[Rfam]
RNA sequence: GUCGGCAUCGUCACUGUCCAGCCGAGCGCCGUGCCGGUCACGACCGAACUGCCGGGCCGCACGAACGCGUUCCUCGUCGCCCAGGUGCGCGCGCGGGUGGACGGCAUCGUGCUGCGCCGCGAGUUCACCGAAGGCUCGCAGGUCAAGGUCGGUCAGCGUCUCUACAAGAUCGA
Numbered sequence: 001g002u003c004g005g006c007a008u009c010g011u012c013a014c015u016g017u018c019c020a021g022c023c024g025a026g027c028g029c030c031g032u033g034c035c036g037g038u039c040a041c042g043a044c045c046g047a048a049c050u051g052c053c054g055g056g057c058c059g060c061a062c063g064a065a066c067g068c069g070u071u072c073c074u075c076g077u078c079g080c081c082c083a084g085g086u087g088c089g090c091g092c093g094c095g096g097g098u099g100g101a102c103g104g105c106a107u108c109g110u111g112c113u114g115c116g117c118c119g120c121g122a123g124u125u126c127a128c129c130g131a132a133g134g135c136u137c138g139c140a141g142g143u144c145a146a147g148g149u150c151g152g153u154c155a156g157c158g159u160c161u162c163u164a165c166a167a168g169a170u171c172g173a
Stems, first nucleotide, its partner, number of pairs: 003054005008047003011043002016038001018037002021034002023031002055150004059143002063139001067135002072133001074131002078093003082089001094121002097118001100115001102114005157172002159169003
RNA: Burkholderia RNA 14